[Rfam]
RNA: MIR1428 microRNA precursor family
Organism: Oryza sativa
Nucleotides: 110
Base pairs, nucleotide, nucleotide: 002109003108004107005106006105007104008103009102010101011100012099013098014097015096016095019093020092021091024088025087026086027085028084029083030082031081032080033079034078037075041071043069044068045067046066048064049063050062
Number, partner (000 for none) and nucleotide at each position: 001000g002109c003108a004107c005106u006105u007104u008103g009102c010101a011100a012099a013098u014097u015096u016095g017000c018000a019093g020092g021091c022000u023000c024088u025087a026086u027085c028084u029083u030082g031081u032080g033079g034078u035000a036000u037075g038000a039000a040000a041071u042000g043069a044068g045067u046066a047000c048064g049063c050062g051000a052000u053000g054000a055000u056000u057000c058000c059000u060000u061000u062050u063049g064048c065000g066046u067045a068044u069043u070000g071041g072000g073000g074000g075037c076000u077000g078034a079033c080032c081031a082030u083029a084028a085027g086026a087025u088024a089000a090000a091021g092020c093019c094000g095016c096015g097014a098013a099012u100011u101010u102009g103008c104007a105006a106005a107004g108003u109002g110000u